[Rfam]
RNA: Small nucleolar RNA SNORD19
RNA sequence: GAGGUAUGAGGAAAAUAUCUGAACAGUCUGAUUGUUGUUGAAGACUGGUAAGAUCCAACUCUGACCUCAGCAAAACC
Numbered sequence: 001g002a003g004g005u006a007u008g009a010g011g012a013a014a015a016u017a018u019c020u021g022a023a024c025a026g027u028c029u030g031a032u033u034g035u036u037g038u039u040g041a042a043g044a045c046u047g048g049u050a051a052g053a054u055c056c057a058a059c060u061c062u063g064a065c066c067u068c069a070g071c072a073a074a075a076c077c
Stems, first nucleotide, its partner, number of pairs: 001068004